[Rfam]
RNA sequence: AAGUAUCUCCGAGUCUCGCCUGUGAUGGGGGAGAUAGGAGUAACAGCUGGUUGGCACAGCCUUCGACGUACCUGUUCGACCGAGAGAGCGGCUGCUUCGCACCGCGAGAACAGGCUAUGUCGUAAACCACAAUAUCCCAAACGCGGUCGGGAAUCCUCGCCCUUCAGGGCGGGGA
Number, nucleotide and partner (000 for none) at each position: 001a000002a000003g044004u043005a000006u000007c040008u039009c038010c037011g000012a000013g035014u034015c033016u031017c030018g000019c028020c027021u000022g000023u000024g000025a000026u000027g020028g019029g000030g017031g016032a000033g015034a014035u013036a000037g010038g009039a008040g007041u000042a000043a004044c003045a000046g060047c059048u058049g057050g000051u000052u000053g000054g000055c000056a000057c049058a048059g047060c046061c000062u000063u000064c122065g121066a120067c119068g118069u117070a000071c114072c113073u112074g111075u110076u109077c108078g000079a000080c000081c000082g000083a000084g000085a000086g000087a000088g000089c000090g103091g102092c000093u101094g100095c099096u000097u000098c000099g095100c094101a093102c091103c090104g000105c000106g000107a000108g077109a076110a075111c074112a073113g072114g071115c000116u000117a069118u068119g067120u066121c065122g064123u000124a000125a000126a000127c000128c000129a000130c000131a000132a000133u000134a000135u152136c151137c150138c149139a000140a000141a147142c146143g000144c000145g000146g142147u141148c000149g138150g137151g136152a135153a000154u175155c174156c173157u172158c171159g170160c169161c168162c167163u000164u000165c000166a000167g162168g161169g160170c159171g158172g157173g156174g155175a154
RNA: Sense overlapping transcript RNA 0042 (sot)
Organism: halophilic archaeon